A member of the RNA family "CRISPR RNA direct repeat element" from Actinomadura viridilutea, 30 nucleotides long.
A search with the family's covariance model found it, with a score of 41 bits.
Gene Ontology term of the family: defense response.
Rfam 15.1 lists 447 matches to the family in 26 species.
NCBI's taxonomy places the organism under Bacteria, Actinomycetota, Streptosporangiales, Thermomonosporaceae, Actinomadura.
RNA sequence: AUUGCAAUCCCUCCAGGGGUGAUGAGCGAC
Numbered sequence: 001a002u003u004g005c006a007a008u009c010c011c012u013c014c015a016g017g018g019g020u021g022a023u024g025a026g027c028g029a030c
Base pairs, nucleotide, nucleotide: 002029003028004027005026007020008019009018010017011016